[Rfam]
RNA sequence: GCAUCAGUGACGAGCACGCUUGUCCGAGGAUGCCGAGGGACUCGUUCCCAAUGCCAGUCUGCGGUCC
Number, nucleotide and partner (000 for none) at each position: 001g067002c000003a065004u064005c063006a000007g000008u000009g000010a000011c000012g000013a000014g000015c000016a000017c000018g000019c000020u000021u000022g000023u000024c000025c000026g000027a000028g000029g000030a000031u000032g000033c000034c000035g000036a000037g000038g000039g000040a000041c000042u000043c000044g000045u000046u000047c000048c000049c000050a000051a000052u000053g000054c000055c000056a000057g000058u000059c000060u000061g000062c000063g005064g004065u003066c000067c001